[Rfam]
RNA sequence: CAGCAUAUGAUAAGAUGUACUCGGGUUCCCCUUCUUACAUUACGGGUGAUGUAAAAUCAAGUUUCUGGUGCU
Numbered sequence: 001c002a003g004c005a006u007a008u009g010a011u012a013a014g015a016u017g018u019a020c021u022c023g024g025g026u027u028c029c030c031c032u033u034c035u036u037a038c039a040u041u042a043c044g045g046g047u048g049a050u051g052u053a054a055a056a057u058c059a060a061g062u063u064u065c066u067g068g069u070g071c072u
Stems, first nucleotide, its partner, number of pairs: 002072004